This 92-nucleotide RNA sequence from Lysinibacter cavernae belongs to the Rfam family "Glycine riboswitch aptamer".
Pairs were carried over by alignment from the consensus structure.
NCBI's taxonomy places the organism under Bacteria, Bacillati, Actinomycetes, Micrococcales, Lysinibacter.
This family represents the bacterial glycine riboswitch.
The match comes from Rfam's covariance-model search (70 bits).
RNA sequence: AAACACGAUGCGGGAGAGCCGUUACACCAAGACGGCACCGAAGGAGCAAGCCUCCCCGCCAAUCUCUCAGGUAGUUGUACCGCAUCGGACUG
Numbered sequence: 001a002a003a004c005a006c007g008a009u010g011c012g013g014g015a016g017a018g019c020c021g022u023u024a025c026a027c028c029a030a031g032a033c034g035g036c037a038c039c040g041a042a043g044g045a046g047c048a049a050g051c052c053u054c055c056c057c058g059c060c061a062a063u064c065u066c067u068c069a070g071g072u073a074g075u076u077g078u079a080c081c082g083c084a085u086c087g088g089a090c091u092g
Base pairs, nucleotide, nucleotide: 006087007086008085009084010083011082012081013080019035020034021033022032037072038071039070040068041067044066045065046064050059051058